Shown here is a 114-nucleotide RNA from Oncorhynchus tshawytscha, a member of the family "Potassium channel RNA editing signal". Pairs were carried over by alignment from the consensus structure, which is taken from published work. From the family's description: This family represents a group of sequences related to the human potassium channel Kv1.1 hairpin element which directs the efficient modification of an adenosine to inosine by an adenosine deaminase acting on RNA (ADAR). It scores 109 bits against the family's covariance model.
RNA sequence: GUUGGCUACGGGGACAUGUGCCCGGUGACCAUCGGCGGAAAGAUCGUGGGCUCUCUGUGCGCCAUAGCCGGUGUGCUCACCAUCGCGUUACCGGUCCCCGUCAUCGUGUCCAAC
Numbered sequence: 001g002u003u004g005g006c007u008a009c010g011g012g013g014a015c016a017u018g019u020g021c022c023c024g025g026u027g028a029c030c031a032u033c034g035g036c037g038g039a040a041a042g043a044u045c046g047u048g049g050g051c052u053c054u055c056u057g058u059g060c061g062c063c064a065u066a067g068c069c070g071g072u073g074u075g076c077u078c079a080c081c082a083u084c085g086c087g088u089u090a091c092c093g094g095u096c097c098c099c100g101u102c103a104u105c106g107u108g109u110c111c112a113a114c
Base pairs, nucleotide, nucleotide: 001114002113004111005110007108008107009106010105011104013102014101015100018097020095021094037077038076040074049063050062051061
It is annotated as a cis-regulatory element. NCBI's taxonomy places the organism under Eukaryota, Eumetazoa, Chordata, Salmoninae, Oncorhynchus.